A member of the RNA family "U11 spliceosomal RNA" from Dinothrombium tinctorium, 152 nucleotides long. The family is grouped with related families in Rfam's "U1 clan". It is annotated as a spliceosomal small nuclear RNA.
RNA sequence: GAAAAGGGUAUCGAUCAUUAAGUGAAUGAUCCACAGUAUUCGCGCGGAUUCGUCUGCGUGAGACUGUGCAGAAUCGCAAUCAAGAGAUUCUGGAUACAUAAUUUUUGGAACCUCGAGGCCGUGGACUAAACCAUCUGUAUGUCUGCGCCUCG
Numbered sequence: 001g002a003a004a005a006g007g008g009u010a011u012c013g014a015u016c017a018u019u020a021a022g023u024g025a026a027u028g029a030u031c032c033a034c035a036g037u038a039u040u041c042g043c044g045c046g047g048a049u050u051c052g053u054c055u056g057c058g059u060g061a062g063a064c065u066g067u068g069c070a071g072a073a074u075c076g077c078a079a080u081c082a083a084g085a086g087a088u089u090c091u092g093g094a095u096a097c098a099u100a101a102u103u104u105u106u107g108g109a110a111c112c113u114c115g116a117g118g119c120c121g122u123g124g125a126c127u128a129a130a131c132c133a134u135c136u137g138u139a140u141g142u143c144u145g146c147g148c149c150u151c152g
Base pairs, nucleotide, nucleotide: 008097009096010095011094012093013031014030015029016028017027018026019025032068033067034066035065036064037063039061040060069092070091071090072089073088074087075086116150117149118148119147121146122145123144124143125142127141128140130138